[Rfam]
RNA: U12 minor spliceosomal RNA
RNA sequence: GUGCCUCAAACUAAUGAGUAAGGAAAAUUACCGAGCGUUGUUGACGCUUCGCUCAGCUGAUGUCUAAUCAGUGAAAAUAUUUGAACGGGUUCAGGUUGUCCCAGGCUUGCUUGCCUACUUUGCAAGCGAGCUAGGAGUUAGCAAUCUACCCG
Numbered sequence: 001g002u003g004c005c006u007c008a009a010a011c012u013a014a015u016g017a018g019u020a021a022g023g024a025a026a027a028u029u030a031c032c033g034a035g036c037g038u039u040g041u042u043g044a045c046g047c048u049u050c051g052c053u054c055a056g057c058u059g060a061u062g063u064c065u066a067a068u069c070a071g072u073g074a075a076a077a078u079a080u081u082u083g084a085a086c087g088g089g090u091u092c093a094g095g096u097u098g099u100c101c102c103a104g105g106c107u108u109g110c111u112u113g114c115c116u117a118c119u120u121u122g123c124a125a126g127c128g129a130g131c132u133a134g135g136a137g138u139u140a141g142c143a144a145u146c147u148a149c150c151c152g
Stems, first nucleotide, its partner, number of pairs: 004023003008019001033054005040047001056072005086152005093147007101135002104132005110126005